[Rfam]
RNA sequence: GCGAUGAGCUGAAUUGUGUAAGUCGAGCAACGAGCCAUUUUGGCAGGCACUAUGUGGAGUGCUGUUUACUCGCCUCAAUUUUCGAAAAAAAAGAAACCUGCAUUUAUGUAGGUUUC
Numbered sequence: 001g002c003g004a005u006g007a008g009c010u011g012a013a014u015u016g017u018g019u020a021a022g023u024c025g026a027g028c029a030a031c032g033a034g035c036c037a038u039u040u041u042g043g044c045a046g047g048c049a050c051u052a053u054g055u056g057g058a059g060u061g062c063u064g065u066u067u068a069c070u071c072g073c074c075u076c077a078a079u080u081u082u083c084g085a086a087a088a089a090a091a092a093g094a095a096a097c098c099u100g101c102a103u104u105u106a107u108g109u110a111g112g113u114u115u116c
Stems, first nucleotide, its partner, number of pairs: 014078003018074001024072004029066003034044002046063002049060003093116009